[Rfam]
RNA sequence: AACAUCCUUCGGGGCAGGGUGAGGCGUUGUGACGAGCGCCAAUUCCCGACCGGUGGUGACGCGCAAGCGAAGUCCACGAGCCUAAACCGCGUGGUUGGGCAGGAACUGGUGAGAGUCCAGUACCGACGGUACAGUCCGGAUGGGAGAAGGAUGAC
Numbered sequence: 001a002a003c004a005u006c007c008u009u010c011g012g013g014g015c016a017g018g019g020u021g022a023g024g025c026g027u028u029g030u031g032a033c034g035a036g037c038g039c040c041a042a043u044u045c046c047c048g049a050c051c052g053g054u055g056g057u058g059a060c061g062c063g064c065a066a067g068c069g070a071a072g073u074c075c076a077c078g079a080g081c082c083u084a085a086a087c088c089g090c091g092u093g094g095u096u097g098g099g100c101a102g103g104a105a106c107u108g109g110u111g112a113g114a115g116u117c118c119a120g121u122a123c124c125g126a127c128g129g130u131a132c133a134g135u136c137c138g139g140a141u142g143g144g145a146g147a148a149g150g151a152u153g154a155c
Base pairs, nucleotide, nucleotide: 003153004152005151006150007149008148009147010146017047018046019045049135050134051125052124053077054076055075056074072123073122082099105121106120107119108118109117127138128137129136
The family of this 155-nucleotide RNA from Paenalicyclobacillus macrosporangiidus is "FMN riboswitch aptamer (RFN element)". The family's consensus secondary structure is taken from published work. Rfam's curators write: The RFN element is a highly conserved domain that is found frequently in the 5'-untranslated regions of prokaryotic mRNAs that encode for flavin mononucleotide (FMN) biosynthesis and transport proteins.